Rfam assigns this 105-nucleotide RNA sequence from Alkalicoccobacillus porphyridii to the family "Guanidine-I riboswitch aptamer".
Rfam's curators write: This family represents a conserved RNA structure found upstream of the ykkC and yxkD genes in Bacillus subtilis and related genes in other bacteria.
NCBI's taxonomy places the organism under Bacteria, Bacilli, Caryophanales, Bacillaceae, Alkalicoccobacillus.
RNA sequence: UAAUAAGUUCCCUAGGGUUCCGCAGAGGCUAUUAGCUCUGGUCUGGUCCGAGAGGGGGCGCGCGGUCGGAUGGCUGUGACACGGAGGGAUAAAAGCCCGGGAGAU
Number, nucleotide and partner (000 for none) at each position: 001u000002a000003a000004u000005a000006a000007g059008u058009u057010c056011c055012c054013u000014a000015g049016g048017g000018u000019u000020c046021c045022g043023c040024a039025g038026a037027g036028g000029c035030u000031a000032u000033u000034a000035g029036c027037u026038c025039u024040g023041g000042u000043c022044u000045g021046g020047u000048c016049c015050g000051a000052g000053a000054g012055g011056g010057g009058g008059c007060g000061c078062g077063c076064g075065g074066u073067c072068g000069g000070a000071u000072g067073g066074c065075u064076g063077u062078g061079a000080c100081a000082c103083g000084g000085a000086g098087g097088g096089a000090u000091a000092a000093a000094a000095g000096c088097c087098c086099g000100g080101g000102a000103g082104a000105u000